[Rfam]
RNA sequence: UUGCCAUCCCGAGCGACUGAGAGACCUGGCUCGCUGAAGUCGCAGCAACCACCCCUCCGGGGCAGGUGCUACCGCCAGGACCGAUGGAGG
Dot-bracket structure: ((.(((((....(((((...(((..[[[[)))......)))))((((.((.(((....)))...))))))...(]]]]...)))))).))
Numbered sequence: 001u002u003g004c005c006a007u008c009c010c011g012a013g014c015g016a017c018u019g020a021g022a023g024a025c026c027u028g029g030c031u032c033g034c035u036g037a038a039g040u041c042g043c044a045g046c047a048a049c050c051a052c053c054c055c056u057c058c059g060g061g062g063c064a065g066g067u068g069c070u071a072c073c074g075c076c077a078g079g080a081c082c083g084a085u086g087g088a089g090g
Stems, first nucleotide, its partner, number of pairs: 001090002004087005013043005021032003026078004044070004049066002052061003074082001
Shown here is a 90-nucleotide sequence from Amycolatopsis xylanica, a member of the family "SAM riboswitch aptamer (S box leader)". The source organism's lineage runs through Bacteria, Bacillati, Actinomycetota, Pseudonocardiales and Amycolatopsis.